Trypanosomatid snoRNA TB10Cs5H2: a 77-nucleotide sequence from Trypanosoma cruzi. The literature on the family includes a 2008 paper in BMC Bioinformatics by Myslyuk et al., "Psiscan: a computational approach to identify H/ACA-like and AGA-like non-coding RNA in trypanosomatid genomes". Rfam's curators put it in the seed alignment. Lineage of the source: Eukaryota > Discoba > Kinetoplastea > Metakinetoplastina > Schizotrypanum.
RNA sequence: GGAGCAGGCAACGUCUGUAUUAUGUGGGAGUUCGCUCGUUUUCCUCAUCUGCAUUUGUACUGUAGAAGCCUGCAAGA
Number, nucleotide and partner (000 for none) at each position: 001g000002g000003a000004g073005c072006a071007g070008g069009c068010a000011a000012c000013g000014u000015c000016u000017g060018u059019a058020u000021u000022a000023u053024g000025u000026g000027g000028g000029a000030g000031u000032u000033c000034g000035c000036u000037c000038g000039u000040u000041u000042u000043c000044c000045u000046c000047a000048u000049c000050u000051g000052c000053a023054u000055u000056u000057g000058u019059a018060c017061u000062g000063u000064a000065g000066a000067a000068g009069c008070c007071u006072g005073c004074a000075a000076g000077a000